[Rfam]
RNA sequence: GCCGCUGCCAAAAAAGGGGUGGCGCCCGGGUGAACCGGACCAUCUUGUACCCAUGUUGCUUCAAGGAGGAUGUGGCUAUGAGAA
Numbered sequence: 001g002c003c004g005c006u007g008c009c010a011a012a013a014a015a016g017g018g019g020u021g022g023c024g025c026c027c028g029g030g031u032g033a034a035c036c037g038g039a040c041c042a043u044c045u046u047g048u049a050c051c052c053a054u055g056u057u058g059c060u061u062c063a064a065g066g067a068g069g070a071u072g073u074g075g076c077u078a079u080g081a082g083a084a
Base pairs, nucleotide, nucleotide: 001023002022003021004020005019006018008017009016030043044082045081046080047079048078049077051075052074053073054072055071056070057069059068060067061066